SAM riboswitch aptamer (S box leader): a 110-nucleotide sequence from Bacillus sp. FJAT-50079.

RNA sequence: CUCUUAUCUAGAGCGGCGGAGGGACUAGGCCCUACGAUGCCCGGCAACCUUCAGAGAUUUAUUCUGAAAAGGUGCUAAUUCCUACAGGUGAUGAACCUGAAAGAUAAGGG
Numbered sequence: 001c002u003c004u005u006a007u008c009u010a011g012a013g014c015g016g017c018g019g020a021g022g023g024a025c026u027a028g029g030c031c032c033u034a035c036g037a038u039g040c041c042c043g044g045c046a047a048c049c050u051u052c053a054g055a056g057a058u059u060u061a062u063u064c065u066g067a068a069a070a071g072g073u074g075c076u077a078a079u080u081c082c083u084a085c086a087g088g089u090g091a092u093g094a095a096c097c098u099g100a101a102a103g104a105u106a107a108g109g110g
Stems, first nucleotide, its partner, number of pairs: 001110008013042001015041003021032003026084004043076004048072002050068006080102001085099005
Dot-bracket structure: ((((((((....(.(((...(((..[[[[)))......))))((((.((((((((.......))))))..))))))...(]]]](((((.....)))))..)))))))))
From the family's description: The SAM riboswitch is found upstream of a number of genes which code for proteins involved in methionine or cysteine biosynthesis in Gram-positive bacteria. The SAM riboswitch acts at the level of transcription termination control. The predicted structure consists of a complex stem-loop region followed by a single stem loop terminator region. An alternative and mutually exclusive form involves bases in the 3' segment of helix 1 with those in the 5' region of helix 5 to form a structure termed the anti-terminator form. The organism belongs to Bacillus, within Bacteria.